[Rfam]
The family of this 101-nucleotide RNA from Lentinus tigrinus is "tRNA". The base pairs follow the family's consensus structure, which is taken from published work.
RNA sequence: GGGCGUUUGGCACAGUGGUAGCGCGCCUGCUUUGCAUUGUGUAACCCAAGGUUAUGUAAUUGGAUUGCAUGAGGUCGAGGGUUCAAACCCCUCAACGUCCA
Numbered sequence: 001g002g003g004c005g006u007u008u009g010g011c012a013c014a015g016u017g018g019u020a021g022c023g024c025g026c027c028u029g030c031u032u033u034g035c036a037u038u039g040u041g042u043a044a045c046c047c048a049a050g051g052u053u054a055u056g057u058a059a060u061u062g063g064a065u066u067g068c069a070u071g072a073g074g075u076c077g078a079g080g081g082u083u084c085a086a087a088c089c090c091c092u093c094a095a096c097g098u099c100c101a
Stems, first nucleotide, its partner, number of pairs: 001100007010024002013021001026071001028069003077093005
Description:
Rfam describes the family as follows. Transfer RNA (tRNA) molecules are approximately 80 nucleotides in length.